[Rfam]
Shown here is a 64-nucleotide RNA sequence from Caenorhabditis elegans, a member of the family "mir-5592 microRNA precursor family".
RNA sequence: CGGCCCUUACCGUUUAAUACAUGGUGCAUCGACCGGGAACAUGUAUUAAACGGUAAGGGCCGGC
Numbered sequence: 001c002g003g004c005c006c007u008u009a010c011c012g013u014u015u016a017a018u019a020c021a022u023g024g025u026g027c028a029u030c031g032a033c034c035g036g037g038a039a040c041a042u043g044u045a046u047u048a049a050a051c052g053g054u055a056a057g058g059g060c061c062g063g064c
Stems, first nucleotide, its partner, number of pairs: 001062023
Rfam links the family to the GO terms miRNA-mediated post-transcriptional gene silencing and RISC complex. NCBI's taxonomy places the organism under Eukaryota, Opisthokonta, Eumetazoa, Rhabditomorpha, Caenorhabditis.